[Rfam]
RNA sequence: CGGUGGUGGCGGCUGGGGACAGCCCCAUGGUGGUGGUGG
Dot-bracket structure: (.((((..................)))).).........
The family of this 39-nucleotide sequence from Jaculus jaculus is "Prion pseudoknot". Rfam describes the family as follows. This family represents a predicted pseudoknot structure found in prion protein mRNA. It has been suggested that the family has a possible effect in prion protein translation. The literature on the family includes a 2001 paper in Nucleic Acids Res by Barrette et al., "Pseudoknots in prion protein mRNAs confirmed by comparative sequence analysis and pattern searching". A search with the family's covariance model found it, with a score of 49 bits.